[Rfam]
The family of this 89-nucleotide sequence from Candidatus Moduliflexus flocculans is "c-di-GMP-I riboswitch aptamer". Lineage of the source: Bacteria > Candidatus Moduliflexia > Candidatus Moduliflexales > Candidatus Moduliflexaceae > Candidatus Moduliflexus.
RNA sequence: UUCAGAAAAGACUAAAUUCGCCGCGAGGUGAAGACGGAAAGCUACGGAUCUUAUCCUUGAGAGGAGAAUAAGAUGGCCGGGUUGCCUGA
Numbered sequence: 001u002u003c004a005g006a007a008a009a010g011a012c013u014a015a016a017u018u019c020g021c022c023g024c025g026a027g028g029u030g031a032a033g034a035c036g037g038a039a040a041g042c043u044a045c046g047g048a049u050c051u052u053a054u055c056c057u058u059g060a061g062a063g064g065a066g067a068a069u070a071a072g073a074u075g076g077c078c079g080g081g082u083u084g085c086c087u088g089a
Stems, first nucleotide, its partner, number of pairs: 012037002017032006040083004045079003048074003057066002